RNA sequence: CACAGAUAUGGCGACAUGGUUCCAAACACCAUCGCUGGGAAGAUCUUCGGGUCGAUCUGUUCUCUGAGUGGCGUUCUGGUCAUCGCCCUGCCGGUUCCCGUCAUCGUGUCCAAC
Numbered sequence: 001c002a003c004a005g006a007u008a009u010g011g012c013g014a015c016a017u018g019g020u021u022c023c024a025a026a027c028a029c030c031a032u033c034g035c036u037g038g039g040a041a042g043a044u045c046u047u048c049g050g051g052u053c054g055a056u057c058u059g060u061u062c063u064c065u066g067a068g069u070g071g072c073g074u075u076c077u078g079g080u081c082a083u084c085g086c087c088c089u090g091c092c093g094g095u096u097c098c099c100g101u102c103a104u105c106g107u108g109u110c111c112a113a114c
Base pairs, nucleotide, nucleotide: 005110007108008107009106010105011104013102014101015100018097019096021094037077038076039075040074049063050062051061
RNA: Potassium channel RNA editing signal
Organism: Amphiprion percula